[Rfam]
RNA: Y RNA
Organism: Callithrix jacchus
RNA sequence: GGCUGGUCUGAAGAUAGUGAGAAAUCUCAACUGAUAGUUCACAGUUACAGAUUGAACUCCUUGUUCAACUCUUUUCCCCCUUCUCACUACUGCACUUGACUAGUUUUAA
Numbered sequence: 001g002g003c004u005g006g007u008c009u010g011a012a013g014a015u016a017g018u019g020a021g022a023a024a025u026c027u028c029a030a031c032u033g034a035u036a037g038u039u040c041a042c043a044g045u046u047a048c049a050g051a052u053u054g055a056a057c058u059c060c061u062u063g064u065u066c067a068a069c070u071c072u073u074u075u076c077c078c079c080c081u082u083c084u085c086a087c088u089a090c091u092g093c094a095c096u097u098g099a100c101u102a103g104u105u106u107u108a109a
Base pairs, nucleotide, nucleotide: 001105002104003103004102005101006100007099008098010097011096015092016088017087018086019085020084021083032067033066